[Rfam]
RNA sequence: UGGCGGGGGAGCACCGCAACGGGAGGAGCGUGCGGUUUAAUUGGAUUCAACACCGGAAAACUCACCAAGGGCGACUGUUACAUGAAAGCCAGGCUAAUGACCUUGCUAGAUUUUCAGAGAGGUGGUGCAUGGCCGUCGUCAGUUCGUACCGUAAGGCGUUCUCUUAAGUGAGAUAACGAACGAGACCCUCACUGAUAAUUGCUACUCCAUCCUCCGGGGUGGAGGCACAUUAUUGGGACCGCUGGCGCUAAGUCAGAGGAAGGAGAGGUCAACGGUAGGUCAGUAUGCCCCGAAUCUCUUGGGCUACACGCGCGCUACAAAGGGCGGGACAAUGGGCUCCGACGCCGAAAGGCGAAGGUAAUCUCGAAACCCGUCCAUAGUUCGGAUUGAGGGUUGUAACUCACCCUCAUGAAGCUGGAUUCCGUAGUAAUCGCGAAUCAACAACUCGCGGUGAAUAUGCCCCUGCUCCUUGCACACACCGCCCGUCAAACCAUCCGAGUUGGGUUUCAGUGAGGUUGCCUCUAAUUAGGGUAUUCGAACUGAGAUUUAGCAAGGAAGGUUAAGUCGUAACAAGGUAUCUGUAGGGGAACCUGCAGAUGG
Numbered sequence: 001u002g003g004c005g006g007g008g009g010a011g012c013a014c015c016g017c018a019a020c021g022g023g024a025g026g027a028g029c030g031u032g033c034g035g036u037u038u039a040a041u042u043g044g045a046u047u048c049a050a051c052a053c054c055g056g057a058a059a060a061c062u063c064a065c066c067a068a069g070g071g072c073g074a075c076u077g078u079u080a081c082a083u084g085a086a087a088g089c090c091a092g093g094c095u096a097a098u099g100a101c102c103u104u105g106c107u108a109g110a111u112u113u114u115c116a117g118a119g120a121g122g123u124g125g126u127g128c129a130u131g132g133c134c135g136u137c138g139u140c141a142g143u144u145c146g147u148a149c150c151g152u153a154a155g156g157c158g159u160u161c162u163c164u165u166a167a168g169u170g171a172g173a174u175a176a177c178g179a180a181c182g183a184g185a186c187c188c189u190c191a192c193u194g195a196u197a198a199u200u201g202c203u204a205c206u207c208c209a210u211c212c213u214c215c216g217g218g219g220u221g222g223a224g225g226c227a228c229a230u231u232a233u234u235g236g237g238a239c240c241g242c243u244g245g246c247g248c249u250a251a252g253u254c255a256g257a258g259g260a261a262g263g264a265g266a267g268g269u270c271a272a273c274g275g276u277a278g279g280u281c282a283g284u285a286u287g288c289c290c291c292g293a294a295u296c297u298c299u300u301g302g303g304c305u306a307c308a309c310g311c312g313c314g315c316u317a318c319a320a321a322g323g324g325c326g327g328g329a330c331a332a333u334g335g336g337c338u339c340c341g342a343c344g345c346c347g348a349a350a351g352g353c354g355a356a357g358g359u360a361a362u363c364u365c366g367a368a369a370c371c372c373g374u375c376c377a378u379a380g381u382u383c384g385g386a387u388u389g390a391g392g393g394u395u396g397u398a399a400c401u402c403a404c405c406c407u408c409a410u411g412a413a414g415c416u417g418g419a420u421u422c423c424g425u426a427g428u429a430a431u432c433g434c435g436a437a438u439c440a441a442c443a444a445c446u447c448g449c450g451g452u453g454a455a456u457a458u459g460c461c462c463c464u465g466c467u468c469c470u471u472g473c474a475c476a477c478a479c480c481g482c483c484c485g486u487c488a489a490a491c492c493a494u495c496c497g498a499g500u501u502g503g504g505u506u507u508c509a510g511u512g513a514g515g516u517u518g519c520c521u522c523u524a525a526u527u528a529g530g531g532u533a534u535u536c537g538a539a540c541u542g543a544g545a546u547u548u549a550g551c552a553a554g555g556a557a558g559g560u561u562a563a564g565u566c567g568u569a570a571c572a573a574g575g576u577a578u579c580u581g582u583a584g585g586g587g588a589a590c591c592u593g594c595a596g597a598u599g600g
Stems, first nucleotide, its partner, number of pairs: 001476002003473003007470007016460002020424005025318001027316008035307002041056004065302007075117003080111001087107003091103003121291002124289004130285002132280003135276004142181006149156002160173004187268004192236007202225002206223007239259002242256005322376007334365003339358002343354004383414001388409007430452007479574001481571001484567002487564001489561004494556003499551013514536002517533005523528001576599010
Dot-bracket structure: (((((.(((((((..((..((((((.((((((((((....((((........))))........(((((((...(((..(......(((.(((.......))).)))...)...)))...((.((((..(((((((((...((((((.((....))...((((......))))..)))))).....((((.(((((((...((..(((((((....)))))))))....)))))))..((.(((((.....))))).)).....))))....)))).)))...))))))))....)))))))...)).)))))))).)...(((((((.....(((..((..((((....))))..))....)))....)))))))......(....(((((((........)))))))....).....))))).....(((((((.........)))))))......))...)))))))))).))..(.(..((.(.((((.(((..(((((((((((((..((.(((((.(....)))))).))..)))))))))))))..))).))))..).))...)..).((((((((((....)))))))))).

The family of this 600-nucleotide part of an RNA from Methanomassiliicoccaceae archaeon DOK is "Archaeal small subunit ribosomal RNA". The organism belongs to Methanomassiliicoccaceae, within Archaea. A search with the family's covariance model found it, with a score of 1502 bits. Rfam 15.1 lists 709 matches to the family in 491 species. A reference for the family is Yusupov et al. (2001), "Crystal structure of the ribosome at 5.5 A resolution", Science. The family's consensus secondary structure is taken from published work. Clan: SSU clan.